[Rfam]
Description
The record is a 107-nucleotide part of an RNA from Staphylothermus hellenicus, which matches "Archaeal large subunit ribosomal RNA" in Rfam. NCBI's taxonomy places the organism under Archaea, Thermoproteati, Desulfurococcaceae, Staphylothermus, Staphylothermus hellenicus. On this family, see Yusupov et al., Science 2001: "Crystal structure of the ribosome at 5.5 A resolution". Gene Ontology terms of the family: structural constituent of ribosome and ribosome. Rfam's curators put it in the seed alignment. Pairs were carried over by alignment from the consensus structure, which is taken from published work.
RNA sequence: UACAUACGGCGCAGCCUGGAAGAGAUGAGGUCCUCCAAAGGAAACCGGGGCGACCCGGGAGUACGAGGAGGGCCGAUCAGGGUUGCGCCGUCCGUCUUGAAACACGG
Numbered sequence: 001u002a003c004a005u006a007c008g009g010c011g012c013a014g015c016c017u018g019g020a021a022g023a024g025a026u027g028a029g030g031u032c033c034u035c036c037a038a039a040g041g042a043a044a045c046c047g048g049g050g051c052g053a054c055c056c057g058g059g060a061g062u063a064c065g066a067g068g069a070g071g072g073c074c075g076a077u078c079a080g081g082g083u084u085g086c087g088c089c090g091u092c093c094g095u096c097u098u099g100a101a102a103c104a105c106g107g
Base pairs, nucleotide, nucleotide: 008089009088010087011086012085013084014083015082016081017080022078023077030073031072032071033070034069035068036067040064045058046057047056048055049054092107093106094105095104